[Rfam]
RNA sequence: UAUGACACAACAACUGUUCGUCUUUGAUUUCUUUACUCUCCAUUAAUUAUUGGAGGCAUGCUCGUUGGCAUAAAAAAGUCAAAAACGAACAGAAAGCCUCCCUGUUGGGAGGCUUUUUUUAU
Numbered sequence: 001u002a003u004g005a006c007a008c009a010a011c012a013a014c015u016g017u018u019c020g021u022c023u024u025u026g027a028u029u030u031c032u033u034u035a036c037u038c039u040c041c042a043u044u045a046a047u048u049a050u051u052g053g054a055g056g057c058a059u060g061c062u063c064g065u066u067g068g069c070a071u072a073a074a075a076a077a078g079u080c081a082a083a084a085a086c087g088a089a090c091a092g093a094a095a096g097c098c099u100c101c102c103u104g105u106u107g108g109g110a111g112g113c114u115u116u117u118u119u120u121a122u
Base pairs, nucleotide, nucleotide: 016090017089018088019087021085023083024082025081026080027079028078029077030076032074033073034072035071039054040053041052042051055066056065057064093116094115095114096113097112098111099110100109101108102107
A member of the RNA family "Phenylalanine leader peptide" from Vibrio palustris, 122 nucleotides long.
Rfam classes the family as a cis-regulatory leader.
NCBI's taxonomy places the organism under Bacteria, Gammaproteobacteria, Vibrionales, Vibrionaceae, Vibrio.
Gene Ontology term of the family: cellular amino acid metabolic process.
The literature on the family includes a 1978 paper in Proc Natl Acad Sci U S A by Zurawski et al., "Nucleotide sequence of the leader region of the phenylalanine operon of Escherichia coli".